[Rfam]
RNA sequence: AGUUUGAGUAACUGGGAACCACUCUGAGUUCGCUACAUUGAGUUUUUCGACUUGGGAUUGUAAAAUCAGGAAAAUUCAAGUGAACACAGCUGGUGGUAUCUCAGUCACUUGUUAACU
Numbered sequence: 001a002g003u004u005u006g007a008g009u010a011a012c013u014g015g016g017a018a019c020c021a022c023u024c025u026g027a028g029u030u031c032g033c034u035a036c037a038u039u040g041a042g043u044u045u046u047u048c049g050a051c052u053u054g055g056g057a058u059u060g061u062a063a064a065a066u067c068a069g070g071a072a073a074a075u076u077c078a079a080g081u082g083a084a085c086a087c088a089g090c091u092g093g094u095g096g097u098a099u100c101u102c103a104g105u106c107a108c109u110u111g112u113u114a115a116c117u
Stems, first nucleotide, its partner, number of pairs: 008108002011105002015102001016100002018097002021094003024089003028085001030083005

Shown here is a 117-nucleotide RNA from Allacma fusca, a member of the family "mir-317 microRNA precursor family". Rfam 15.1 lists 153 matches to the family in 144 species. The literature on the family includes a 2007 paper in Genome Res by Stark et al., "Systematic discovery and characterization of fly microRNAs using 12 Drosophila genomes". Lineage of the source: Eukaryota > Allotriocarida > Collembola > Sminthuridae > Allacma.